[Rfam]
RNA sequence: GGAUGCAUUAUUGGGCUAAUCUUCUUUGGCAAAUAUAGCCACAUUUCACUUCACUAUUAAUAUUUGGUGCAAAUUUAGUCAUUAAUUGCCAAAGAAGAUUUGCCCCAUGAUUUAACC
Numbered sequence: 001g002g003a004u005g006c007a008u009u010a011u012u013g014g015g016c017u018a019a020u021c022u023u024c025u026u027u028g029g030c031a032a033a034u035a036u037a038g039c040c041a042c043a044u045u046u047c048a049c050u051u052c053a054c055u056a057u058u059a060a061u062a063u064u065u066g067g068u069g070c071a072a073a074u075u076u077a078g079u080c081a082u083u084a085a086u087u088g089c090c091a092a093a094g095a096a097g098a099u100u101u102g103c104c105c106c107a108u109g110a111u112u113u114a115a116c117c
Stems, first nucleotide, its partner, number of pairs: 005113001007111003011107001013105004018100002021097004027091006034084002